Rfam assigns this 177-nucleotide RNA sequence from Clostridium cavendishii to the family "Lysine riboswitch aptamer". Pairs were carried over by alignment from the consensus structure, which is taken from published work. It scores 119 bits against the family's covariance model. The literature on the family includes a 2003 paper in Cell by Mandal et al., "Riboswitches Control Fundamental Biochemical Pathways in Bacillus subtilis and Other Bacteria". Taxonomically the source falls in Clostridium cavendishii (Bacteria, Clostridia, Clostridiaceae, Clostridium).
RNA sequence: AACUAAGGUAGAGGUGCAAAGAUUAAGAGUAUCAUAGUUGAGGUAAGCACAAUGACACUAUGAGAAAGGAAAAUUUGCCGAAGUGAGUAAGCUAACGCUUUAAAGCUACUUGCUGGUUUUGAUUAGAAUAUAAGCAAAACUGUCACAAUUUAAAGUUUGUGGAGAGCUAUCAUUCAA
Number, nucleotide and partner (000 for none) at each position: 001a000002a000003c000004u000005a000006a000007g171008g170009u169010a168011g167012a000013g000014g000015u000016g078017c077018a076019a075020a074021g000022a000023u071024u070025a000026a000027g000028a000029g000030u000031a000032u063033c062034a061035u060036a059037g058038u057039u000040g000041a000042g000043g000044u000045a000046a000047g000048c000049a000050c000051a000052a000053u000054g000055a000056c000057a038058c037059u036060a035061u034062g033063a032064g000065a000066a000067a000068g000069g000070a024071a023072a000073a000074u020075u019076u018077g017078c016079c000080g000081a000082a114083g113084u112085g111086a110087g109088u108089a107090a000091g106092c105093u104094a000095a000096c000097g000098c000099u000100u000101u000102a000103a000104a093105g092106c091107u089108a088109c087110u086111u085112g084113c083114u082115g141116g140117u139118u138119u137120u136121g135122a000123u133124u132125a131126g000127a000128a000129u000130a000131u125132a124133a123134g000135c121136a120137a119138a118139a117140c116141u115142g000143u162144c161145a160146c159147a158148a157149u000150u000151u000152a000153a000154a000155g000156u000157u148158u147159g146160u145161g144162g143163a000164g000165a000166g000167c011168u010169a009170u008171c007172a000173u000174u000175c000176a000177a000